[Rfam]
RNA sequence: CUGGAGGACUAAGAAAGUAGAGCCCGUGAAGUCAAGUUGGCUCUACUGAUACUAUCCUCCUAAAUCAAACGGUAGACGAACAGGGCCUGUCUUUGAGAUGGAGUCAGGACCUACUUAAGCUACCAACAGUC
Dot-bracket structure: ..((((((.((......((((((((.((....)).)..)))))))....))...))))))..........(((((......(((.((((...............)))).))).......))))).......
RNA: Small Cajal body specific RNA 15